[Rfam]
RNA sequence: AAGAGCUUGGAGUCAAUAAAGACUAAGAAGAUUGACUCGGAAA
Numbered sequence: 001a002a003g004a005g006c007u008u009g010g011a012g013u014c015a016a017u018a019a020a021g022a023c024u025a026a027g028a029a030g031a032u033u034g035a036c037u038c039g040g041a042a043a
Base pairs, nucleotide, nucleotide: 007041008040010038011037012036013035014034015033016032017031